[Rfam]
RNA sequence: AGAGGCCCUCCGUGGCCGGGGUGGAACACUUGCCUCGUCGCUGCGGCGAUGAAGCAAACAUUCCACCAGGCCACUCAUGCUGCCUCC
Numbered sequence: 001a002g003a004g005g006c007c008c009u010c011c012g013u014g015g016c017c018g019g020g021g022u023g024g025a026a027c028a029c030u031u032g033c034c035u036c037g038u039c040g041c042u043g044c045g046g047c048g049a050u051g052a053a054g055c056a057a058a059c060a061u062u063c064c065a066c067c068a069g070g071c072c073a074c075u076c077a078u079g080c081u082g083c084c085u086c087c
Stems, first nucleotide, its partner, number of pairs: 004084003012074006020067007030057004037050005